[Rfam]
RNA sequence: AUAAAUUAUGAAUAAAUAACUCAUAUAUCCCUUGAAUAUGGCAAGGAGUUUCUACCGGAAACCGAUAAAUUUCUGACUAUGAGUAAAAGUAAUCAUGUU
Numbered sequence: 001a002u003a004a005a006u007u008a009u010g011a012a013u014a015a016a017u018a019a020c021u022c023a024u025a026u027a028u029c030c031c032u033u034g035a036a037u038a039u040g041g042c043a044a045g046g047a048g049u050u051u052c053u054a055c056c057g058g059a060a061a062c063c064g065a066u067a068a069a070u071u072u073c074u075g076a077c078u079a080u081g082a083g084u085a086a087a088a089g090u091a092a093u094c095a096u097g098u099u
Base pairs, nucleotide, nucleotide: 019084020083021082022081023080024079025078030046031045032044033043034042056075057074058073059072060071061070
Overview: The record is a 99-nucleotide RNA from Clostridium sulfidigenes, which matches "Purine riboswitch aptamer" in Rfam. The source organism's lineage runs through Bacteria, Bacillati, Clostridia, Eubacteriales and Clostridium. Rfam describes the family as follows. Riboswitches are metabolite binding domains within certain messenger RNAs that serve as precision sensors for their corresponding targets.